[Rfam]
This 86-nucleotide RNA from Pseudorhodobacter antarcticus belongs to the Rfam family "tRNA".
Transfer RNA (tRNA) molecules are approximately 80 nucleotides in length.
The organism belongs to Pseudorhodobacter, within Bacteria.
The match comes from Rfam's covariance-model search (54 bits).
The family's consensus secondary structure is taken from published work.
RNA sequence: GGCCGCUUGCUGGAACUGGUAGACAGACCGGACUUAAAAUCCGUUGCUUGGAAACGAGCGUGUGGGUUCGAUUCCCACAGCGGCCA
Numbered sequence: 001g002g003c004c005g006c007u008u009g010c011u012g013g014a015a016c017u018g019g020u021a022g023a024c025a026g027a028c029c030g031g032a033c034u035u036a037a038a039a040u041c042c043g044u045u046g047c048u049u050g051g052a053a054a055c056g057a058g059c060g061u062g063u064g065g066g067u068u069c070g071a072u073u074c075c076c077a078c079a080g081c082g083g084c085c086a
Stems, first nucleotide, its partner, number of pairs: 001085007010026003029043004062078005